Description: Shown here is a 92-nucleotide RNA from Phytoactinopolyspora alkaliphila, a member of the family "TPP riboswitch aptamer (THI element)". About the family: Vitamin B(1) in its active form thiamin pyrophosphate (TPP) is an essential coenzyme that is synthesised by coupling of pyrimidine and thiazole moieties in bacteria. The previously detected thiamin-regulatory element, thi box was extended, resulting in a new, highly conserved RNA secondary structure, the THI element, which is widely distributed in eubacteria and also occurs in some archaea. Analysis of operon structures identified a large number of new candidate thiamin-regulated genes, mostly transporters, in various prokaryotic organisms. The THI element is a riboswitch that directly binds to TPP to regulate gene expression through a variety of mechanisms in archaea, bacteria and eukaryotes. through a variety of mechanisms in archaea, bacteria and eukaryotes. Tandem TPP riboswitches have been reported where both TPP riboswitches respond independently to TPP. The structure of TPP riboswitch has been reported for Escherichia coli and Arabidopsis thaliana. The family's consensus secondary structure is taken from published work. A search with the family's covariance model found it, with a score of 71 bits.

RNA sequence: ACCGAUCGGCCGGGGUGCCCUCACGGGCUGAGAACACACCCGCCGAACCUGAUCCGGGUCAUGCCGGCGCAGGGAGCCGACACGGUCCACGG
Numbered sequence: 001a002c003c004g005a006u007c008g009g010c011c012g013g014g015g016u017g018c019c020c021u022c023a024c025g026g027g028c029u030g031a032g033a034a035c036a037c038a039c040c041c042g043c044c045g046a047a048c049c050u051g052a053u054c055c056g057g058g059u060c061a062u063g064c065c066g067g068c069g070c071a072g073g074g075a076g077c078c079g080a081c082a083c084g085g086u087c088c089a090c091g092g
Stems, first nucleotide, its partner, number of pairs: 006080005011042004016036001017028004048073004054067004